[Rfam]
RNA sequence: GGGUGUGCGUCGCGCUCCUGGCACGCACAGGUUCCUCGGUGGUCGGGCCGCCACCU
Numbered sequence: 001g002g003g004u005g006u007g008c009g010u011c012g013c014g015c016u017c018c019u020g021g022c023a024c025g026c027a028c029a030g031g032u033u034c035c036u037c038g039g040u041g042g043u044c045g046g047g048c049c050g051c052c053a054c055c056u
Stems, first nucleotide, its partner, number of pairs: 005028006012022001038055006
RNA: nhaA-I RNA
Organism: Myxococcus fulvus